[Rfam]
RNA sequence: GAAUUCAGACGACCCACUCCUCCCAAGGGGACGUCUGUGGGAACAGCGGCACUCCUCCUCCCAAGUCGCUGUUCGUUCUUUUAGAAAAGCCUGCCGCACCUCCUCCCGCGGCAGGCUUUUUUA
Numbered sequence: 001g002a003a004u005u006c007a008g009a010c011g012a013c014c015c016a017c018u019c020c021u022c023c024c025a026a027g028g029g030g031a032c033g034u035c036u037g038u039g040g041g042a043a044c045a046g047c048g049g050c051a052c053u054c055c056u057c058c059u060c061c062c063a064a065g066u067c068g069c070u071g072u073u074c075g076u077u078c079u080u081u082u083a084g085a086a087a088a089g090c091c092u093g094c095c096g097c098a099c100c101u102c103c104u105c106c107c108g109c110g111g112c113a114g115g116c117u118u119u120u121u122u123a
Stems, first nucleotide, its partner, number of pairs: 006037006013030003041074010087118011
Dot-bracket structure: .....((((((.(((............))).))))))...((((((((((..............))))))))))............(((((((((((..........))))))))))).....

This 123-nucleotide RNA sequence from Rhizobium sp. LC145 belongs to the Rfam family "Alphaproteobacterial ar14". The pairing is the family consensus, mapped onto this sequence. From the family's description: Smr14C2 was renamed NfeR1 (Nodule Formation Efficiency RNA) highly expressed in salt stress and during the symbiotic interaction on legume roots. The family's RNA type in Rfam is small RNA. Lineage of the source: Bacteria > Pseudomonadati > Alphaproteobacteria > Rhizobiaceae > Rhizobium.